Record summary:
The record is an 86-nucleotide RNA sequence from Paenalicyclobacillus cellulosilyticus, which matches "ZMP/ZTP riboswitch aptamer (pfl RNA motif)" in Rfam. For this family Rfam cites "Parallel Discovery Strategies Provide a Basis for Riboswitch Ligand Design" (Tran et al., Cell Chem Biol, 2020). Taxonomically the source falls in Paenalicyclobacillus (Bacteria, Bacillati, Bacillota, Caryophanales). A search with the family's covariance model found it, with a score of 66 bits.
[Rfam]
RNA sequence: GAGCUGUCGCACGACUGGCGGAACCGUGGAGUACACCACAAGGGAGUGCGGCAGGGUUUCGCUUGCCGGCCGCCUGGGCACACGUG
Numbered sequence: 001g002a003g004c005u006g007u008c009g010c011a012c013g014a015c016u017g018g019c020g021g022a023a024c025c026g027u028g029g030a031g032u033a034c035a036c037c038a039c040a041a042g043g044g045a046g047u048g049c050g051g052c053a054g055g056g057u058u059u060c061g062c063u064u065g066c067c068g069g070c071c072g073c074c075u076g077g078g079c080a081c082a083c084g085u086g
Stems, first nucleotide, its partner, number of pairs: 004054009015043002017074005026039004064080004